[Rfam]
The record is a 195-nucleotide RNA from Medicago truncatula, which matches "MIR2619 microRNA precursor family" in Rfam. The family's consensus secondary structure was predicted with RNAalifold. It scores 166 bits against the family's covariance model.
RNA sequence: AAACAACCCCCUAUGUAUUGGAUCUUUGGCAGUUUUGGCCCCCAAAAUCACUUUUGACUUAGUCUUCGUUGAGGUGGCAUCCCUUAAGUGAGGUGCCACGUGUCGAUCAUUGUGGGUGCCACGUCAGCAAAGACUAAGUCAAAAGUGGCCUUGGGAGCCAAAACUGCCAAAGAUCCAAUACAUAGGAGGAUGUUU
Numbered sequence: 001a002a003a004c005a006a007c008c009c010c011c012u013a014u015g016u017a018u019u020g021g022a023u024c025u026u027u028g029g030c031a032g033u034u035u036u037g038g039c040c041c042c043c044a045a046a047a048u049c050a051c052u053u054u055u056g057a058c059u060u061a062g063u064c065u066u067c068g069u070u071g072a073g074g075u076g077g078c079a080u081c082c083c084u085u086a087a088g089u090g091a092g093g094u095g096c097c098a099c100g101u102g103u104c105g106a107u108c109a110u111u112g113u114g115g116g117u118g119c120c121a122c123g124u125c126a127g128c129a130a131a132g133a134c135u136a137a138g139u140c141a142a143a144a145g146u147g148g149c150c151u152u153g154g155g156a157g158c159c160a161a162a163a164c165u166g167c168c169a170a171a172g173a174u175c176c177a178a179u180a181c182a183u184a185g186g187a188g189g190a191u192g193u194u195u
Stems, first nucleotide, its partner, number of pairs: 001195002004192002007189002012184028041155005072124001075121008